Source information: A member of the RNA family "RAGATH-11 RNA", 120 nucleotides long. The family's consensus secondary structure is taken from published work. It is annotated as a small RNA. It is one of the family's seed sequences.
RNA sequence: ACGAGAGUUAAGCUCGUAUGCCUGGUUUAGGGUUCCAGGCUAGCCCUAUCUAUCGGUCGAGAUGCGAGCGCUUAAGCUCAAAUUGAGUGGCUGAGUUAGUGGUGAACGUAUCCCUAUGUU
Numbered sequence: 001a002c003g004a005g006a007g008u009u010a011a012g013c014u015c016g017u018a019u020g021c022c023u024g025g026u027u028u029a030g031g032g033u034u035c036c037a038g039g040c041u042a043g044c045c046c047u048a049u050c051u052a053u054c055g056g057u058c059g060a061g062a063u064g065c066g067a068g069c070g071c072u073u074a075a076g077c078u079c080a081a082a083u084u085g086a087g088u089g090g091c092u093g094a095g096u097u098a099g100u101g102g103u104g105a106a107c108g109u110a111u112c113c114c115u116a117u118g119u120u
Base pairs, nucleotide, nucleotide: 001017002016003015004014005013020040021039022038023037024036025035029115030114031113032112043103044102045101046099047098048097056091057090058089059088061084062083067078068077069076